[Rfam]
Nucleotides: 128
Stems, first nucleotide, its partner, number of pairs: 004058005020045005025038003069121001071119004077114002083108002090101002094099001
Number, partner (000 for none) and nucleotide at each position: 001000g002000u003000g004058c005057a006056g007055a008054c009000a010000g011000u012000u013000a014000c015000c016000c017000c018000u019000u020045u021044c022043u023042a024041g025038u026037c027036u028000g029000g030000c031000u032000c033000c034000u035000g036027g037026g038025a039000c040000u041024c042023u043022a044021g045020a046000g047000g048000g049000a050000g051000u052000c053000a054008g055007u056006c057005u058004g059000a060000a061000a062000u063000a064000u065000u066000a067000a068000g069121u070000a071119g072118u073117g074116a075000a076000c077114u078113c079000g080000u081000c082000u083108g084107u085000c086000c087000a088000g089000u090101g091100u092000c093000a094099g095000u096000g097000u098000u099094c100091a101090u102000u103000g104000g105000c106000a107084a108083c109000u110000u111000u112000a113078g114077a115000c116074u117073u118072g119071c120000c121069a122000a123000g124000u125000a126000u127000c128000a

Rfam assigns this 128-nucleotide sequence from Loxodonta africana to the family "Small nucleolar RNA SNORA56".
Gene Ontology terms of the family: RNA processing and nucleolus.
Rfam describes the family as follows. ACA56 is a member of the H/ACA class of snoRNA that guide the sites of modification of uridines to pseudouridines.
Taxonomically the source falls in Loxodonta (Eukaryota, Eumetazoa, Deuterostomia, Craniata).